A member of the RNA family "Mason-Pfizer monkey virus packaging signal" from Sciurus vulgaris, 272 nucleotides long. It is annotated as a cis-regulatory element. The source organism's lineage runs through Eukaryota, Opisthokonta, Craniata, Amniota and Sciurus. The match comes from Rfam's covariance-model search (148 bits). Gene Ontology term of the family: viral genome packaging. This family represents a group of sequences that are related to the Mason-Pfizer monkey virus (MPMV) packaging signal. The packaging signal is located in the 5' UTR and is required for specific RNA encapsidation.

RNA sequence: UGGCGCCCAAUGGUGUGGCUUUGGAUACAGGGGAAUUCACGAGGGAAGAGGCGUGUAAGUGUUCGGCCAAAGAGAAAAAAAAAAAGUGAAAGUCAGUUCAAGAAAGAUCACCGCGCCGUUCUUAAAGGUACAGUAGCGCCUAAAGGGACAAGAAUUAAGUAAGCAUAAAGUUUUUGUUAAGCAAUUAAAAGAAGCUUUAAAGACACAGGGAGUAAAGGUUAAGAGUAAUGAUCUUUUUAAGUUUUUUGACCUUAUUAAGGACACCUGUCUGU
Dot-bracket structure: .....(((....(((..........)))..)))....(.(.......).)..........................................((..((.........................)).)).....(.(..(((...))).).)....(((((.................................)).)))......((((((((..((((((.......))))))......))))))))........(.((((....)))).)